Shown here is a 92-nucleotide RNA sequence from Ensifer meliloti, a member of the family "Rhizobiales sRNA Atu_Ti1". The family's consensus secondary structure was predicted with WAR. By type it is a small RNA. Lineage of the source: Bacteria > Pseudomonadati > Pseudomonadota > Hyphomicrobiales > Ensifer. A reference for the family is Wilms et al. (2012), "Deep sequencing uncovers numerous small RNAs on all four replicons of the plant pathogen Agrobacterium tumefaciens", RNA Biol.
RNA sequence: GUCCAGAAUGCGGCGGACCAGAGCCAGAGCCCUGCAAAGGUGAUGGCAGCAGCCGGCCAAUAGCGCGUCGUCAUGAUGGCGAGGCCGGCUGC
Numbered sequence: 001g002u003c004c005a006g007a008a009u010g011c012g013g014c015g016g017a018c019c020a021g022a023g024c025c026a027g028a029g030c031c032c033u034g035c036a037a038a039g040g041u042g043a044u045g046g047c048a049g050c051a052g053c054c055g056g057c058c059a060a061u062a063g064c065g066c067g068u069c070g071u072c073a074u075g076a077u078g079g080c081g082a083g084g085c086c087g088g089c090u091g092c
Stems, first nucleotide, its partner, number of pairs: 001018004023047004031039001049092010064081003